[Rfam]
RNA: Lysine riboswitch aptamer
Organism: Turicibacter sp. HGF1
RNA sequence: AAAUCGUAUAGAGGUAGCGUUGCAUCAGAGUACAACAGGGAGCUGGCAAGUGAGGAAAUGUUGGAAAGGUAAUCAUCGCCGAAAGUUUCGUAUUGGCAAAUACGUCACUUGGGGUUGCAGGAAAUACCUGUAACACUCCUUCAGUUUUGAAGAGGAGCUAUUAAACAG
Numbered sequence: 001a002a003a004u005c006g007u008a009u010a011g012a013g014g015u016a017g018c019g020u021u022g023c024a025u026c027a028g029a030g031u032a033c034a035a036c037a038g039g040g041a042g043c044u045g046g047c048a049a050g051u052g053a054g055g056a057a058a059u060g061u062u063g064g065a066a067a068g069g070u071a072a073u074c075a076u077c078g079c080c081g082a083a084a085g086u087u088u089c090g091u092a093u094u095g096g097c098a099a100a101u102a103c104g105u106c107a108c109u110u111g112g113g114g115u116u117g118c119a120g121g122a123a124a125u126a127c128c129u130g131u132a133a134c135a136c137u138c139c140u141u142c143a144g145u146u147u148u149g150a151a152g153a154g155g156a157g158c159u160a161u162u163a164a165a166c167a168g
Stems, first nucleotide, its partner, number of pairs: 008161004017079003021075002025071001033063005083110004089104006111137002114134008139152005